Shown here is an 83-nucleotide RNA, a member of the family "Flavo-1 RNA".
RNA sequence: GACUAGCCCUGAUUGUAGUGAAAAUAGAAAAUGCUUCCAUUGUUUGGAAGCAUUUUUUAUUGUAACGGAAAGCAGGAAUAAGG
Numbered sequence: 001g002a003c004u005a006g007c008c009c010u011g012a013u014u015g016u017a018g019u020g021a022a023a024a025u026a027g028a029a030a031a032u033g034c035u036u037c038c039a040u041u042g043u044u045u046g047g048a049a050g051c052a053u054u055u056u057u058u059a060u061u062g063u064a065a066c067g068g069a070a071a072g073c074a075g076g077a078a079u080a081a082g083g
Stems, first nucleotide, its partner, number of pairs: 009075003013071002018066002023061004028057002032052008